MIR2655 microRNA precursor family: a 242-nucleotide RNA sequence from Trifolium pratense. The family's consensus secondary structure was predicted with RNAalifold. Lineage of the source: Eukaryota > Tracheophyta > Spermatophyta > Fabales > Trifolium. Rfam links the family to the GO terms miRNA-mediated post-transcriptional gene silencing and RISC complex.
RNA sequence: CCUUUAUCUUUUAAAAGUUUUAAGUUGGUCCCUUAUCUUUUCUGUAGGUUUCAUGUUGGUCCCUCCCGUCAAAUUUUUUACUAUUACCGUUAAAUUUGGACACGUGGCAAACAAAAACCACAGUUGGAAAGAUGACACGUGUCCAAAUUUAACGGCAAUAGUGAAAAAUUUGACGGAAGGGACCAAUUUGAAACCUGUAGAAAAGAUAAGGGACCAACUUGAAACUUUUAAAAGAUAAGGGG
Numbered sequence: 001c002c003u004u005u006a007u008c009u010u011u012u013a014a015a016a017g018u019u020u021u022a023a024g025u026u027g028g029u030c031c032c033u034u035a036u037c038u039u040u041u042c043u044g045u046a047g048g049u050u051u052c053a054u055g056u057u058g059g060u061c062c063c064u065c066c067c068g069u070c071a072a073a074u075u076u077u078u079u080a081c082u083a084u085u086a087c088c089g090u091u092a093a094a095u096u097u098g099g100a101c102a103c104g105u106g107g108c109a110a111a112c113a114a115a116a117a118c119c120a121c122a123g124u125u126g127g128a129a130a131g132a133u134g135a136c137a138c139g140u141g142u143c144c145a146a147a148u149u150u151a152a153c154g155g156c157a158a159u160a161g162u163g164a165a166a167a168a169u170u171u172g173a174c175g176g177a178a179g180g181g182a183c184c185a186a187u188u189u190g191a192a193a194c195c196u197g198u199a200g201a202a203a204a205g206a207u208a209a210g211g212g213a214c215c216a217a218c219u220u221g222a223a224a225c226u227u228u229u230a231a232a233a234g235a236u237a238a239g240g241g242g
Stems, first nucleotide, its partner, number of pairs: 002240007023219003027215003031211013045197003